RNA sequence: AUACUCUGGUUUCUCUUCAGAGCGCAUAAAUCUUUCGCCUUUUACUAAGAUUUCCGUGGAGGGGAACAACCAUGAGUUACAUGCAAUUUUUUGAGGCUUGGUUUUUGCCAGGCU
Number, nucleotide and partner (000 for none) at each position: 001a000002u000003a077004c076005u075006c074007u000008g000009g067010u066011u065012u064013c063014u062015c061016u060017u059018c058019a057020g000021a000022g000023c000024g000025c000026a000027u000028a053029a052030a051031u050032c049033u048034u000035u047036c000037g000038c000039c000040u000041u000042u000043u000044a000045c000046u000047a035048a033049g032050a031051u030052u029053u028054c000055c000056g000057u019058g018059g017060a016061g015062g014063g013064g012065a011066a010067c009068a000069a000070c000071c000072a000073u000074g006075a005076g004077u003078u000079a000080c000081a000082u000083g000084c000085a000086a000087u000088u000089u000090u000091u000092u000093g000094a114095g000096g113097c112098u111099u110100g109101g108102u000103u000104u000105u000106u000107g000108c101109c100110a099111g098112g097113c096114u094

Source information
U5 spliceosomal RNA: a 114-nucleotide sequence from Hymenochirus boettgeri. For this family Rfam cites "The uRNA database" (Zwieb, Nucleic Acids Res, 1997). The base pairs follow the family's consensus structure, which is taken from published work. Rfam 15.1 lists 28,527 matches to the family in 2,489 species. A search with the family's covariance model found it, with a score of 92 bits. Its family is annotated with U5 snRNP and spliceosomal tri-snRNP complex assembly in the Gene Ontology. It is annotated as a spliceosomal small nuclear RNA. The organism belongs to Hymenochirus, within Eukaryota.